[Rfam]
RNA sequence: GGAGUUGGCCAGGGUAAUCGCUGCCUUAUUGAUGUCCCUUGACUUAGUGUUGGGGAGACUGAUGAGGGGGAGGAAAGUCCGGGCUCCAUAGAGCAGGGUGCCAGGUAAUGCCUGGGGAGCGUGAGCUCACGACAAGUGCAGCAGAGAGAAUACCGCCGAUGGCCUAUUUUAUAGUGCACAGGUAAGGGUGAAAGGGUGCGGUAAGAGCGCACCGUGCGUCUGGUAACAGUGCGUAGCAAGGUAAACUCCACCCGGAGCAAGACCAAAUAGGCUUCCACAUAGCGCGGCUCGCGUUUGGAGGCGGGUAGGUUGCUUGAGCCAGUGAGUGAUUGCUGGCCUAGAGGAAUGGUUACCACCGUGUAAACGGUACAGAACCCGGCUUAUGUGGCCAACUCCACCC
Numbered sequence: 001g002g003a004g005u006u007g008g009c010c011a012g013g014g015u016a017a018u019c020g021c022u023g024c025c026u027u028a029u030u031g032a033u034g035u036c037c038c039u040u041g042a043c044u045u046a047g048u049g050u051u052g053g054g055g056a057g058a059c060u061g062a063u064g065a066g067g068g069g070g071a072g073g074a075a076a077g078u079c080c081g082g083g084c085u086c087c088a089u090a091g092a093g094c095a096g097g098g099u100g101c102c103a104g105g106u107a108a109u110g111c112c113u114g115g116g117g118a119g120c121g122u123g124a125g126c127u128c129a130c131g132a133c134a135a136g137u138g139c140a141g142c143a144g145a146g147a148g149a150a151u152a153c154c155g156c157c158g159a160u161g162g163c164c165u166a167u168u169u170u171a172u173a174g175u176g177c178a179c180a181g182g183u184a185a186g187g188g189u190g191a192a193a194g195g196g197u198g199c200g201g202u203a204a205g206a207g208c209g210c211a212c213c214g215u216g217c218g219u220c221u222g223g224u225a226a227c228a229g230u231g232c233g234u235a236g237c238a239a240g241g242u243a244a245a246c247u248c249c250a251c252c253c254g255g256a257g258c259a260a261g262a263c264c265a266a267a268u269a270g271g272c273u274u275c276c277a278c279a280u281a282g283c284g285c286g287g288c289u290c291g292c293g294u295u296u297g298g299a300g301g302c303g304g305g306u307a308g309g310u311u312g313c314u315u316g317a318g319c320c321a322g323u324g325a326g327u328g329a330u331u332g333c334u335g336g337c338c339u340a341g342a343g344g345a346a347u348g349g350u351u352a353c354c355a356c357c358g359u360g361u362a363a364a365c366g367g368u369a370c371a372g373a374a375c376c377c378g379g380c381u382u383a384u385g386u387g388g389c390c391a392a393c394u395c396c397a398c399c400c
Stems, first nucleotide, its partner, number of pairs: 001396010011384001013354007021070002024067008075382003079379005084257004091290004096253005101115005116130001117128004131248002136246002138242002153187002155183003160178002195213006214237001215235005220229003261311004271302006281295005318337008
Notes:
The family of this 400-nucleotide sequence from Vibrio palustris is "Bacterial RNase P class A". A search with the family's covariance model found it, with a score of 318 bits. It is annotated as a ribozyme.